Overview
Bacterial small signal recognition particle RNA: a 98-nucleotide RNA from Sulfuricurvum sp. MLSB. A search with the family's covariance model found it, with a score of 59 bits. NCBI's taxonomy places the organism under Bacteria, Pseudomonadati, Epsilonproteobacteria, Sulfurimonadaceae, Sulfuricurvum. The family's RNA type in Rfam is non-coding RNA gene. Rfam's curators write: The signal recognition particle (SRP) is a universally conserved ribonucleoprotein involved in the co-translational targeting of proteins to membranes. For this family Rfam cites "Temperature-responsive in vitro RNA structurome of Yersinia pseudotuberculosis" (Righetti et al., Proc Natl Acad Sci U S A, 2016).
[Rfam]
RNA sequence: CUUCUAGACCUGUGCAAGGGUGCGUAAAGGCACUGUGUCAGGGUAGGAAUACAGCAGCACACCUAUGCGUGCUUUGUGCCGCAGGUAUCUGGGAGAGC
Numbered sequence: 001c002u003u004c005u006a007g008a009c010c011u012g013u014g015c016a017a018g019g020g021u022g023c024g025u026a027a028a029g030g031c032a033c034u035g036u037g038u039c040a041g042g043g044u045a046g047g048a049a050u051a052c053a054g055c056a057g058c059a060c061a062c063c064u065a066u067g068c069g070u071g072c073u074u075u076g077u078g079c080c081g082c083a084g085g086u087a088u089c090u091g092g093g094a095g096a097g098c
Stems, first nucleotide, its partner, number of pairs: 004092005009085006015076001017075006024068003028064003034061005043052003